[Rfam]
RNA: Lysine riboswitch aptamer
Organism: Ureibacillus sinduriensis
RNA sequence: AGUAAGGAUAGAGGAGCAAAAACCAUCAGUACACAGUUUGAGGACUAUGAGAUCCGAAGAAGAUUGUGAAAAGGGGAAUUUGCCGAAGCUUUUGAGAAACUCAUAAUCUCACGAGCUGGUUCUGUUGUUGAACAAAUGCAGAACUGUCAUAUAGGUUUCUAUAUGGAGGGCUAUCUUACGC
Numbered sequence: 001a002g003u004a005a006g007g008a009u010a011g012a013g014g015a016g017c018a019a020a021a022a023c024c025a026u027c028a029g030u031a032c033a034c035a036g037u038u039u040g041a042g043g044a045c046u047a048u049g050a051g052a053u054c055c056g057a058a059g060a061a062g063a064u065u066g067u068g069a070a071a072a073g074g075g076g077a078a079u080u081u082g083c084c085g086a087a088g089c090u091u092u093u094g095a096g097a098a099a100c101u102c103a104u105a106a107u108c109u110c111a112c113g114a115g116c117u118g119g120u121u122c123u124g125u126u127g128u129u130g131a132a133c134a135a136a137u138g139c140a141g142a143a144c145u146g147u148c149a150u151a152u153a154g155g156u157u158u159c160u161a162u163a164u165g166g167a168g169g170g171c172u173a174u175c176u177u178a179c180g181c
Base pairs, nucleotide, nucleotide: 006176007175008174009173010172011171016083017082018081019080020079023076024075032068033067034066035065036064037063038062039061087117088116089115090114091113093111094110095109096108097107118145119144120143121142122141123140124139125138128135147166148165149164150163151162152161153160